[Rfam]
RNA sequence: CUGAUAAUCGCGUUUGGGUAAUUUGUGGACUGCAAAACCCAAUUUCCCUAACAAUUCCCACUAAUAUGGAUAUUGUAGAGGGACAACGCGUUUCUGUCAG
Numbered sequence: 001c002u003g004a005u006a007a008u009c010g011c012g013u014u015u016g017g018g019u020a021a022u023u024u025g026u027g028g029a030c031u032g033c034a035a036a037a038c039c040c041a042a043u044u045u046c047c048c049u050a051a052c053a054a055u056u057c058c059c060a061c062u063a064a065u066a067u068g069g070a071u072a073u074u075g076u077a078g079a080g081g082g083a084c085a086a087c088g089c090g091u092u093u094c095u096g097u098c099a100g
Base pairs, nucleotide, nucleotide: 001100002099003098004097005096009090010089011088012087013086015041016040017039018038023035024034025033026032027031045083046082047081048080049079051076052075053074054073055072

Shown here is a 100-nucleotide sequence, a member of the family "L4-Archaeoglobi ribosomal protein leades". By type it is a cis-regulatory leader.